[Rfam]
RNA: U1 spliceosomal RNA
RNA sequence: GUCCUUACCUGGCAGGGGAGAUACCAUGAUCACAAAGGUGGUUUUCUCAAGGCGAGGCUUAUCCAUUGCACUCCGGAUGUGCUGACCCCUGCGAUUUCCCCAAAUGUGGGAAACUCGACUCAUAAUUUGUGGUAGUGGGGGACUG
Numbered sequence: 001g002u003c004c005u006u007a008c009c010u011g012g013c014a015g016g017g018g019a020g021a022u023a024c025c026a027u028g029a030u031c032a033c034a035a036a037g038g039u040g041g042u043u044u045u046c047u048c049a050a051g052g053c054g055a056g057g058c059u060u061a062u063c064c065a066u067u068g069c070a071c072u073c074c075g076g077a078u079g080u081g082c083u084g085a086c087c088c089c090u091g092c093g094a095u096u097u098c099c100c101c102a103a104a105u106g107u108g109g110g111a112a113a114c115u116c117g118a119c120u121c122a123u124a125a126u127u128u129g130u131g132g133u134a135g136u137g138g139g140g141g142a143c144u145g
Stems, first nucleotide, its partner, number of pairs: 012121001014120002016048006023042005049090001051088002054086001056083003060079005092117003095113003099109002